[Rfam]
RNA sequence: UUCAGGAGUAGAAGCAGUCACGCGUCACCGCCAGGUGCCGCCGGGUCAUUGCUCCCAAG
Dot-bracket structure: ....((((((....(...[..(((.((((....)))).)))..)]....))))))....
Numbered sequence: 001u002u003c004a005g006g007a008g009u010a011g012a013a014g015c016a017g018u019c020a021c022g023c024g025u026c027a028c029c030g031c032c033a034g035g036u037g038c039c040g041c042c043g044g045g046u047c048a049u050u051g052c053u054c055c056c057a058a059g
Stems, first nucleotide, its partner, number of pairs: 005055006015044001019045001022041003026037004
Xanthine riboswitch aptamer (NMT1 RNA): a 59-nucleotide sequence from Rhizobium sp. RU36D.
It scores 39 bits against the family's covariance model.
Its family is annotated with purine nucleobase binding in the Gene Ontology.
Taxonomically the source falls in Rhizobium (Bacteria, Alphaproteobacteria, Hyphomicrobiales, Rhizobiaceae).